[Rfam]
RNA sequence: AAUUUGUCGAAUAAAUAGGCUUCCAAAAAAUCAAAAAAGUGCGUAUUAUAUGCGCCUGAAUAUCAGCAUAUGCUGACAAUUAGAUGAUAUAAACAAGUACGGUUUUUUUAGCCGUACUUUUUAUUUGGAUGAUCCAUAAAAAAACUGCUUCAAUUUUAAUCACUUAUGUAAGA
Numbered sequence: 001a002a003u004u005u006g007u008c009g010a011a012u013a014a015a016u017a018g019g020c021u022u023c024c025a026a027a028a029a030a031u032c033a034a035a036a037a038a039g040u041g042c043g044u045a046u047u048a049u050a051u052g053c054g055c056c057u058g059a060a061u062a063u064c065a066g067c068a069u070a071u072g073c074u075g076a077c078a079a080u081u082a083g084a085u086g087a088u089a090u091a092a093a094c095a096a097g098u099a100c101g102g103u104u105u106u107u108u109u110a111g112c113c114g115u116a117c118u119u120u121u122u123a124u125u126u127g128g129a130u131g132a133u134c135c136a137u138a139a140a141a142a143a144a145c146u147g148c149u150u151c152a153a154u155u156u157u158a159a160u161c162a163c164u165u166a167u168g169u170a171a172g173a
Stems, first nucleotide, its partner, number of pairs: 002133001004132005010126002027085001030081001039055007064075004090123004095119010138160001141157004146152002
Background
This 173-nucleotide RNA from Pseudactinobacillus ducreyi belongs to the Rfam family "Actinobacillus sRNA 11". The family's consensus secondary structure was predicted with RNAfold. For this family Rfam cites "A computational strategy for the search of regulatory small RNAs in Actinobacillus pleuropneumoniae" (Rossi et al., RNA, 2016). Rfam's curators write: Arrc stands for Actinobacillus pleuropneumoniae Regulatory RNA Candidate. TargetRNA2 was used for the predictions. radA gene target may be involved in stress resistance. The source organism's lineage runs through Bacteria, Pseudomonadati, Pseudomonadota, Pasteurellaceae and Pseudactinobacillus ducreyi.